[Rfam]
RNA sequence: ACGCAUCGAUUGACAGACCUGGAGCAGUUACUGUCUGCUGCCAAGGUUUCCACUGCAGAUGCAAGCCAAAAGUGUCCUUGCGCUUUCUGUCUGUCUGAUUGUGAAAGUCAAGAUUGAGUAGAGGAAUACAGGG
Numbered sequence: 001a002c003g004c005a006u007c008g009a010u011u012g013a014c015a016g017a018c019c020u021g022g023a024g025c026a027g028u029u030a031c032u033g034u035c036u037g038c039u040g041c042c043a044a045g046g047u048u049u050c051c052a053c054u055g056c057a058g059a060u061g062c063a064a065g066c067c068a069a070a071a072g073u074g075u076c077c078u079u080g081c082g083c084u085u086u087c088u089g090u091c092u093g094u095c096u097g098a099u100u101g102u103g104a105a106a107g108u109c110a111a112g113a114u115u116g117a118g119u120a121g122a123g124g125a126a127u128a129c130a131g132g133g
Stems, first nucleotide, its partner, number of pairs: 003062005008056001011052002015049005023039005075125005083116001086113003091107002094104002
Overview
Shown here is a 133-nucleotide RNA sequence from Castor canadensis, a member of the family "Small nucleolar RNA SNORA31". The family's RNA type in Rfam is H/ACA-box small nucleolar RNA. Lineage of the source: Eukaryota > Teleostomi > Dipnotetrapodomorpha > Theria > Castor. From the family's description: ACA31 (SNORA31) belongs to the H/ACA class of snoRNAs which are thought to guide the sites of modification of uridines to pseudouridines.